Record summary: Rfam assigns this 49-nucleotide RNA from Nocardia sp. CNY236 to the family "L31-Actinobacteria ribosomal protein leader". Taxonomically the source falls in Nocardia (Bacteria, Bacillati, Actinomycetota, Nocardiaceae). It is annotated as a cis-regulatory leader. The family's consensus secondary structure is taken from published work.
[Rfam]
RNA sequence: UCGGUUCCGGUUCACGCUCUGCGCGCAUGUGUUGGGCGACCCGGCGACC
Numbered sequence: 001u002c003g004g005u006u007c008c009g010g011u012u013c014a015c016g017c018u019c020u021g022c023g024c025g026c027a028u029g030u031g032u033u034g035g036g037c038g039a040c041c042c043g044g045c046g047a048c049c
Stems, first nucleotide, its partner, number of pairs: 003049003007044004015038005021032003